[Rfam]
RNA sequence: AAUUAUGUUCGUGGGAACAAAGAGAACCAAAUCUAUUUUAUACCCGAUAAGUACCAAUACACAAUGGAG
Numbered sequence: 001a002a003u004u005a006u007g008u009u010c011g012u013g014g015g016a017a018c019a020a021a022g023a024g025a026a027c028c029a030a031a032u033c034u035a036u037u038u039u040a041u042a043c044c045c046g047a048u049a050a051g052u053a054c055c056a057a058u059a060c061a062c063a064a065u066g067g068a069g
Stems, first nucleotide, its partner, number of pairs: 003022002006019005044067002051060003

Shown here is a 69-nucleotide RNA from Papaver nudicaule, a member of the family "Plastid-clpP 5UTR RNA". Plastid clpP is a non-coding RNA (ncRNA) recognised in plastids. It was found in the prime untranslated region (5UTR) of a protease complex subunit (clpP) in plastids, suggesting a posible cis-regulatory function. The family has 343 seed sequences and 2,105 matches in Rfam 15.1. The literature on the family includes a 2023 paper in Plant Commun by Richter et al., "Retrograde signaling in plants: A critical review focusing on the GUN pathway and beyond". The match comes from Rfam's covariance-model search (84 bits). Pairs were carried over by alignment from the consensus structure, which was predicted with LocARNA.